The family of this 79-nucleotide RNA from Sinocyclocheilus anshuiensis is "Small nucleolar RNA SNORD74".
Rfam 15.1 lists 929 matches to the family in 615 species.
By type it is a C/D-box small nucleolar RNA.
For this family Rfam cites "Purified box C/D snoRNPs are able to reproduce site-specific 2'-O-methylation of target RNA in vitro" (Galardi et al., Mol Cell Biol, 2002).
RNA sequence: GUUCACAUGCGUGAUGAUACAUGAUGUUGGUAGGGACAUCUGAGAAUACUUGAUGAGUACCAACAUCUCUGACAUGCAU
Numbered sequence: 001g002u003u004c005a006c007a008u009g010c011g012u013g014a015u016g017a018u019a020c021a022u023g024a025u026g027u028u029g030g031u032a033g034g035g036a037c038a039u040c041u042g043a044g045a046a047u048a049c050u051u052g053a054u055g056a057g058u059a060c061c062a063a064c065a066u067c068u069c070u071g072a073c074a075u076g077c078a079u
Base pairs, nucleotide, nucleotide: 001079002078004076005075